[Rfam]
RNA: Gag/pol translational readthrough site
RNA sequence: UAGGGGUCUCAGGGCCAGGAGCUCCCCCCUGAGCCCAGGCUAACCUUGAAAAUAGGGGGGCA
Numbered sequence: 001u002a003g004g005g006g007u008c009u010c011a012g013g014g015c016c017a018g019g020a021g022c023u024c025c026c027c028c029c030u031g032a033g034c035c036c037a038g039g040c041u042a043a044c045c046u047u048g049a050a051a052a053u054a055g056g057g058g059g060g061c062a
Stems, first nucleotide, its partner, number of pairs: 010039001012036004016031004022060006
Dot-bracket structure: .........[.[[[[[[[[..((((((]]]].]]]]..]...............))))))..